[Rfam]
RNA sequence: CCUCGCGGACGACCGCGAGGCGAACCGAAUACCGGCGGGACGACCCGC
Numbered sequence: 001c002c003u004c005g006c007g008g009a010c011g012a013c014c015g016c017g018a019g020g021c022g023a024a025c026c027g028a029a030u031a032c033c034g035g036c037g038g039g040a041c042g043a044c045c046c047g048c
Stems, first nucleotide, its partner, number of pairs: 001020008035048005
RNA: Guanidine-II riboswitch aptamer (mini-ykkC)
Organism: Pseudomonas sp. HAR-UPW-AIA-41